[Rfam]
RNA sequence: AGGCAGGGGCGAGGGGCUGCGGGGGGAGCCGGGCGGAGGCUGCGGCUUUCGCUUUUCCUGUUUCCCCUCCCUUUCUUU
Numbered sequence: 001a002g003g004c005a006g007g008g009g010c011g012a013g014g015g016g017c018u019g020c021g022g023g024g025g026g027a028g029c030c031g032g033g034c035g036g037a038g039g040c041u042g043c044g045g046c047u048u049u050c051g052c053u054u055u056u057c058c059u060g061u062u063u064c065c066c067c068u069c070c071c072u073u074u075c076u077u078u
Base pairs, nucleotide, nucleotide: 002076003075005074006073007072008071009070011069012068013067014066015065016064020060021059022058023057024056025055026054027053028052029051032047033046034045036043
The family of this 78-nucleotide sequence from Saimiri boliviensis is "mir-207 microRNA precursor family". The family has 2 seed sequences and 11 matches in Rfam 15.1. A search with the family's covariance model found it, with a score of 89 bits.